The record is a 202-nucleotide sequence from Callaeas wilsoni, which matches "Small nucleolar RNA SNORA74" in Rfam. The match comes from Rfam's covariance-model search (118 bits). U19 belongs to the H/ACA class of snoRNAs. snoRNAs bind a number of proteins (including dyskerin, Gar1p and Nop10p in the case of the H/ACA class) to form snoRNP complexes. This class are thought to guide the sites of modification of uridines to pseudouridines by forming direct base pairing interactions with substrate RNAs. Targets may include ribosomal and spliceosomal RNAs but the exact functions of many snoRNAs, including U19, are not confirmed. The family's consensus secondary structure was predicted with PFOLD. Clan: SNORA74 clan. For this family Rfam cites "The family of box ACA small nucleolar RNAs is defined by an evolutionarily conserved secondary structure and ubiquitous sequence elements essential for RNA accumulation" (Ganot et al., Genes Dev, 1997). The family has 24 seed sequences and 1,348 matches in Rfam 15.1.

[Rfam]
RNA sequence: CCCAGCAGUAGUCAGCUGCCCGCGGCUGCUCGGUGCCUGUGCCAGUGUUAUGCUGCUGGGAGAGAAAGGCGCUGCCGAGUGCUCCUGGCACCAGCGGGGCUGUCCUGGCGCUGGUGGUGCCGGGUUUUGGCAGCGCUCUGCAUGCCUGAGAGUGGAGUAACUCCUGCCCGUGGAGUUAGAGCCUAGAUUGGAUGCAGACAAC
Numbered sequence: 001c002c003c004a005g006c007a008g009u010a011g012u013c014a015g016c017u018g019c020c021c022g023c024g025g026c027u028g029c030u031c032g033g034u035g036c037c038u039g040u041g042c043c044a045g046u047g048u049u050a051u052g053c054u055g056c057u058g059g060g061a062g063a064g065a066a067a068g069g070c071g072c073u074g075c076c077g078a079g080u081g082c083u084c085c086u087g088g089c090a091c092c093a094g095c096g097g098g099g100c101u102g103u104c105c106u107g108g109c110g111c112u113g114g115u116g117g118u119g120c121c122g123g124g125u126u127u128u129g130g131c132a133g134c135g136c137u138c139u140g141c142a143u144g145c146c147u148g149a150g151a152g153u154g155g156a157g158u159a160a161c162u163c164c165u166g167c168c169c170g171u172g173g174a175g176u177u178a179g180a181g182c183c184u185a186g187a188u189u190g191g192a193u194g195c196a197g198a199c200a201a202c
Stems, first nucleotide, its partner, number of pairs: 001060009011051002015046004020041001021039002024037003069136009085124002088120006095113003099109003138197006145190001154183002158178007